[Rfam]
RNA sequence: CAUUGAUGUGAGGAUUGUUUGAUUCGGAAAAUAUUAUGUCGAUUAGAACAAAUUUUUCCAGACUACAAUUAUCUGAUCAAUG
Numbered sequence: 001c002a003u004u005g006a007u008g009u010g011a012g013g014a015u016u017g018u019u020u021g022a023u024u025c026g027g028a029a030a031a032u033a034u035u036a037u038g039u040c041g042a043u044u045a046g047a048a049c050a051a052a053u054u055u056u057u058c059c060a061g062a063c064u065a066c067a068a069u070u071a072u073c074u075g076a077u078c079a080a081u082g
Stems, first nucleotide, its partner, number of pairs: 001082006
Background:
Rfam assigns this 82-nucleotide RNA sequence from Rhododendron williamsianum to the family "Small nucleolar RNA Z155". Rfam classes the family as a C/D-box small nucleolar RNA. The family has 8 seed sequences and 429 matches in Rfam 15.1. The pairing is the family consensus, mapped onto this sequence. The match comes from Rfam's covariance-model search (46 bits). Taxonomically the source falls in Rhododendron (Eukaryota, Streptophytina, eudicotyledons, Rhodoreae).